Acido-Lenti-1 RNA: a 67-nucleotide RNA sequence from Persicirhabdus sediminis.

[Rfam]
RNA sequence: CCUAGGGUUGCGUUGCACCUGCGGCGCUGCCUUACCCUAGGCUAGGCUGUUGCAUGCCUUCGGCAUU
Numbered sequence: 001c002c003u004a005g006g007g008u009u010g011c012g013u014u015g016c017a018c019c020u021g022c023g024g025c026g027c028u029g030c031c032u033u034a035c036c037c038u039a040g041g042c043u044a045g046g047c048u049g050u051u052g053c054a055u056g057c058c059u060u061c062g063g064c065a066u067u
Stems, first nucleotide, its partner, number of pairs: 001041008054066005
Annotation: The base pairs follow the family's consensus structure, which is taken from published work. Rfam classes the family as a small RNA.